This 121-nucleotide sequence from Clostridium estertheticum belongs to the Rfam family "SAM riboswitch aptamer (S box leader)".
[Rfam]
RNA sequence: UUCUCAUCAAGAGAGAUAGAGGGACCGGCCCGAUGAUAUCUCGGCAACCAUCAGGCGAUAAUUGCCUGAAUAGGUGCUAAUUCCUGCGUUAAGUCAAUAGUAACUUAGCGGAAGAUGAGAG
Numbered sequence: 001u002u003c004u005c006a007u008c009a010a011g012a013g014a015g016a017u018a019g020a021g022g023g024a025c026c027g028g029c030c031c032g033a034u035g036a037u038a039u040c041u042c043g044g045c046a047a048c049c050a051u052c053a054g055g056c057g058a059u060a061a062u063u064g065c066c067u068g069a070a071u072a073g074g075u076g077c078u079a080a081u082u083c084c085u086g087c088g089u090u091a092a093g094u095c096a097a098u099a100g101u102a103a104c105u106u107a108g109c110g111g112a113a114g115a116u117g118a119g120a121g
Base pairs, nucleotide, nucleotide: 001121002120003119004118005117006116007115008114013042014041015040016039017038021031022030023029025086027084028083043078044077045076046075048074049073051069052068053067054066055065056064082113087110088109089108090107091106092105093104094103